[Rfam]
This 266-nucleotide RNA from Qingrenia yutianensis belongs to the Rfam family "Bacterial large signal recognition particle RNA". Taxonomically the source falls in Qingrenia (Bacteria, Bacillota, Eubacteriales, Oscillospiraceae). It scores 187 bits against the family's covariance model. Rfam classes the family as a non-coding RNA gene.

RNA sequence: UCGUACAACCGGGGCGGUAGCGGUGCCCUGUACUUGCAAUCCGCUAUAGCAAGGGUUAUGUCUUUUAUGAGGGUUAUUCUUUGUGCGGUCUUGCGCAUUGCAAGUGGUGUUGAGAGCAAGGUCUUACGCAAUACACAGCUGUGAACCCGGUCAGGUGGGGAACCAAGCAGCCGUAAGCAGUUUUGCUGUAUGUGCCGUAAGCGCUCCUUGUUUGAGCUAACUGCAAUGCAGCGCGCGGAAAGAUAAUUCGAAUUUAAGACGUACGG
Numbered sequence: 001u002c003g004u005a006c007a008a009c010c011g012g013g014g015c016g017g018u019a020g021c022g023g024u025g026c027c028c029u030g031u032a033c034u035u036g037c038a039a040u041c042c043g044c045u046a047u048a049g050c051a052a053g054g055g056u057u058a059u060g061u062c063u064u065u066u067a068u069g070a071g072g073g074u075u076a077u078u079c080u081u082u083g084u085g086c087g088g089u090c091u092u093g094c095g096c097a098u099u100g101c102a103a104g105u106g107g108u109g110u111u112g113a114g115a116g117c118a119a120g121g122u123c124u125u126a127c128g129c130a131a132u133a134c135a136c137a138g139c140u141g142u143g144a145a146c147c148c149g150g151u152c153a154g155g156u157g158g159g160g161a162a163c164c165a166a167g168c169a170g171c172c173g174u175a176a177g178c179a180g181u182u183u184u185g186c187u188g189u190a191u192g193u194g195c196c197g198u199a200a201g202c203g204c205u206c207c208u209u210g211u212u213u214g215a216g217c218u219a220a221c222u223g224c225a226a227u228g229c230a231g232c233g234c235g236c237g238g239a240a241a242g243a244u245a246a247u248u249c250g251a252a253u254u255u256a257a258g259a260c261g262u263a264c265g266g
Base pairs, nucleotide, nucleotide: 001266002265003264004263005262006261007057008056009055010054011029012028013027014026015025016024018022033053034052035051036050037049062258063257064256067253068252071249072248073247074246075245078243079242080241081240082239084237085236086235087234091231092230096228097227098226099225100224101223104221105220106218107217108216114213115212116211117210118209119208120207121206123201124200125199126198127197128196129192130191132190133189134188135187136185137182138181139180140179141178142177148173149172150171151170156165157164158163